[Rfam]
The record is an 81-nucleotide RNA sequence from Myotis lucifugus, which matches "mir-574 microRNA precursor family" in Rfam. The family's consensus secondary structure was predicted with RNAalifold. Lineage of the source: Eukaryota > Vertebrata > Dipnotetrapodomorpha > Boreoeutheria > Myotis. Rfam links the family to the GO terms miRNA-mediated post-transcriptional gene silencing and RISC complex.
Nucleotides: 081
Stems, first nucleotide, its partner, number of pairs: 008073007017064004022059001024057006032049004
Number, partner (000 for none) and nucleotide at each position: 001000a002000a003000g004000c005000c006000u007000g008073g009072a010071g011070a012069g013068a014067g015000a016000a017064g018063c019062a020061g021000g022059g023000u024057c025056u026055g027054a028053u029052c030000c031000g032049u033048a034047g035046c036000c037000u038000c039000c040000g041000u042000g043000g044000c045000a046035g047034c048033u049032g050000u051000u052029g053028a054027u055026c056025a057024g058000c059022c060000c061020u062019u063018g064017c065000c066000c067014c068013u069012u070011u071010u072009u073008u074000u075000c076000u077000c078000u079000c080000u081000g